[Rfam]
RNA sequence: AUAUGUGAAAGUGUUUAACAGAAUGCUUACUUUGGAAUGGUGAUAAGCAUUAAAAAAAAGACUGAAAUAUAC
Number, nucleotide and partner (000 for none) at each position: 001a000002u071003a070004u069005g068006u067007g000008a000009a000010a063011g062012u061013g000014u000015u000016u000017a000018a000019c000020a000021g000022a051023a050024u049025g048026c047027u046028u000029a000030c000031u000032u000033u043034g000035g041036a000037a000038u000039g000040g000041u035042g000043a033044u000045a000046a027047g026048c025049a024050u023051u022052a000053a000054a000055a000056a000057a000058a000059a000060g000061a012062c011063u010064g000065a000066a000067a006068u005069a004070u003071a002072c000
Background:
GAIT element: a 72-nucleotide RNA from Camelus dromedarius. A search with the family's covariance model found it, with a score of 50 bits. Its family is annotated with negative regulation of translation in the Gene Ontology. NCBI's taxonomy places the organism under Eukaryota, Eutheria, Boreoeutheria, Artiodactyla, Camelus. Rfam describes the family as follows. This family represents a cis-acting element in the 3'-UTR of the ceruloplasmin (Cp) gene called gamma interferon inhibitor of translation (GAIT). The GAIT element is involved in selective translational silencing of the Cp transcript. Ceruloplasmin (Cp) is a multifunctional, copper-containing glycoprotein produced by the liver and secreted into the plasma.